RNA: PyrR binding site
Organism: Shouchella oshimensis
RNA sequence: AUGUCCUUUAAGCAUAGUCCUGUGAGGCUAGCAAGGAGUCGGUGAAUUUGGAUGCGUCUGUCUAAAUCCCUAGCUGCUCCUUUAAGGACAGCUAGGGAUUUUU
Numbered sequence: 001a002u003g004u005c006c007u008u009u010a011a012g013c014a015u016a017g018u019c020c021u022g023u024g025a026g027g028c029u030a031g032c033a034a035g036g037a038g039u040c041g042g043u044g045a046a047u048u049u050g051g052a053u054g055c056g057u058c059u060g061u062c063u064a065a066a067u068c069c070c071u072a073g074c075u076g077c078u079c080c081u082u083u084a085a086g087g088a089c090a091g092c093u094a095g096g097g098a099u100u101u102u103u
Stems, first nucleotide, its partner, number of pairs: 004037005015030005049064006067098010078088004